mir-36 microRNA precursor family: a 106-nucleotide sequence from Caenorhabditis latens. Rfam 15.1 lists 199 matches to the family in 31 species. The source organism's lineage runs through Eukaryota, Protostomia, Rhabditina, Peloderinae and Caenorhabditis. Gene Ontology terms of the family: RISC complex and miRNA-mediated post-transcriptional gene silencing. The base pairs follow the family's consensus structure, which was predicted with WAR. The family is grouped with related families in Rfam's "mir-36 clan".
[Rfam]
RNA sequence: UACUCCCGGACGACGGGAACCUUGCUGGUUUCAACCUCGGUAAUAGACAAAUACAUAAGAUGAAACUAUCACCGGGUAGAAACUGGUACGAAUCCCCGAGCCAGUC
Number, nucleotide and partner (000 for none) at each position: 001u000002a000003c000004u000005c000006c000007c000008g000009g000010a000011c000012g000013a000014c000015g096016g095017g094018a093019a000020c000021c090022u000023u088024g087025c086026u085027g084028g083029u082030u081031u080032c079033a000034a077035c076036c075037u000038c074039g000040g072041u071042a000043a069044u068045a067046g000047a000048c000049a000050a000051a000052u000053a000054c000055a000056u000057a000058a000059g000060a000061u000062g000063a000064a000065a000066c000067u045068a044069u043070c000071a041072c040073c000074g038075g036076g035077u034078a000079g032080a031081a030082a029083c028084u027085g026086g025087u024088a023089c000090g021091a000092a000093u018094c017095c016096c015097c000098g000099a000100g000101c000102c000103a000104g000105u000106c000